[Rfam]
Small nucleolar RNA snR191: a 256-nucleotide sequence from Pichia inconspicua. Clan: SNORA74 clan. The match comes from Rfam's covariance-model search (93 bits). Pairs were carried over by alignment from the consensus structure, which was predicted with WAR. Its family is annotated with RNA processing and nucleolus in the Gene Ontology.
RNA sequence: UCCCAAAGAUUUUGUCAGGAUGUUCUAUAGAAGGAAACUAACGUUUCAUUCAUUAGCUCAAUAGAUUAUCUGUUACAUCUUUGGAAGAUAAAGAAUAUCGCCCGAUCAUAAUUUCCGUUUUGGAAUGUCUUGAUCAAUGACGGUCCGUUUUGGAUUUGUCACCAUAGAUAUUUCAUGAACUCUAUGAGUUGAACUUGAACUUGAUAAUACACAUUAUCUUUUAGUGUUUUUGUUCGUAGUAAGAGAUCAUACAAUU
Numbered sequence: 001u002c003c004c005a006a007a008g009a010u011u012u013u014g015u016c017a018g019g020a021u022g023u024u025c026u027a028u029a030g031a032a033g034g035a036a037a038c039u040a041a042c043g044u045u046u047c048a049u050u051c052a053u054u055a056g057c058u059c060a061a062u063a064g065a066u067u068a069u070c071u072g073u074u075a076c077a078u079c080u081u082u083g084g085a086a087g088a089u090a091a092a093g094a095a096u097a098u099c100g101c102c103c104g105a106u107c108a109u110a111a112u113u114u115c116c117g118u119u120u121u122g123g124a125a126u127g128u129c130u131u132g133a134u135c136a137a138u139g140a141c142g143g144u145c146c147g148u149u150u151u152g153g154a155u156u157u158g159u160c161a162c163c164a165u166a167g168a169u170a171u172u173u174c175a176u177g178a179a180c181u182c183u184a185u186g187a188g189u190u191g192a193a194c195u196u197g198a199a200c201u202u203g204a205u206a207a208u209a210c211a212c213a214u215u216a217u218c219u220u221u222u223a224g225u226g227u228u229u230u231u232g233u234u235c236g237u238a239g240u241a242a243g244a245g246a247u248c249a250u251a252c253a254a255u256u
Stems, first nucleotide, its partner, number of pairs: 003084005018071005024065004095173001096170004104135005110128001113125004139160004143155005175250004180245004190236005197229004203218006